[Rfam]
RNA: Eukaryotic large subunit ribosomal RNA, nucleotides 684 to 964
RNA sequence: GAGUCUAACAUGCCUGCGAGUGUUUGGGUGCAAAACCCAGGCGCGUAAUGAAAGUGAAAAGUUGGGACUCUUUAGUGAGGCACCGACGCCCGAUCCUGAAGUUUUCUGACGGAUUUGAGGCAGAGCAUGUAUGUUGGGACCCGAAAGAUGGUGAACUAUGCCUGAAUAGGGCGAAGCCAGAGGAAACUCUGGUGGAGGCUCGUAGCGAUUCUGACGUGCAAAUCGAUCGUCAAAUUUGGGUAUAGGGGCGAAAGACUAAUCGAACCAUCUAGUAGCUGGUU
Numbered sequence: 001g002a003g004u005c006u007a008a009c010a011u012g013c014c015u016g017c018g019a020g021u022g023u024u025u026g027g028g029u030g031c032a033a034a035a036c037c038c039a040g041g042c043g044c045g046u047a048a049u050g051a052a053a054g055u056g057a058a059a060a061g062u063u064g065g066g067a068c069u070c071u072u073u074a075g076u077g078a079g080g081c082a083c084c085g086a087c088g089c090c091c092g093a094u095c096c097u098g099a100a101g102u103u104u105u106c107u108g109a110c111g112g113a114u115u116u117g118a119g120g121c122a123g124a125g126c127a128u129g130u131a132u133g134u135u136g137g138g139a140c141c142c143g144a145a146a147g148a149u150g151g152u153g154a155a156c157u158a159u160g161c162c163u164g165a166a167u168a169g170g171g172c173g174a175a176g177c178c179a180g181a182g183g184a185a186a187c188u189c190u191g192g193u194g195g196a197g198g199c200u201c202g203u204a205g206c207g208a209u210u211c212u213g214a215c216g217u218g219c220a221a222a223u224c225g226a227u228c229g230u231c232a233a234a235u236u237u238g239g240g241u242a243u244a245g246g247g248g249c250g251a252a253a254g255a256c257u258a259a260u261c262g263a264a265c266c267a268u269c270u271a272g273u274a275g276c277u278g279g280u281u
Stems, first nucleotide, its partner, number of pairs: 005137009015127003020044003025039005048055002061087005068079003089120002091117003094113003100107002140279002143276001147269006156245011167233001169201004176193007205230004210226002213224002247257002